[Rfam]
The record is a 64-nucleotide RNA from Cnephaeus nilssonii, which matches "mir-9242 microRNA precursor family" in Rfam. The family's consensus secondary structure was predicted with RNAalifold. NCBI's taxonomy places the organism under Eukaryota, Metazoa, Deuterostomia, Euteleostomi, Cnephaeus. Gene Ontology terms of the family: RISC complex and miRNA-mediated post-transcriptional gene silencing. It scores 65 bits against the family's covariance model.
RNA sequence: GGCCUCCCUCUUUGAGGCGAUCGAUCGCAGAGCCCCCCCAUUGAUCGCCUUGCAGAGGGUGGCC
Numbered sequence: 001g002g003c004c005u006c007c008c009u010c011u012u013u014g015a016g017g018c019g020a021u022c023g024a025u026c027g028c029a030g031a032g033c034c035c036c037c038c039c040a041u042u043g044a045u046c047g048c049c050u051u052g053c054a055g056a057g058g059g060u061g062g063c064c
Stems, first nucleotide, its partner, number of pairs: 001064004006059006013052013027038001
Dot-bracket structure: ((((.((((((.(((((((((((((.(..........).))))))))))))).)))))).))))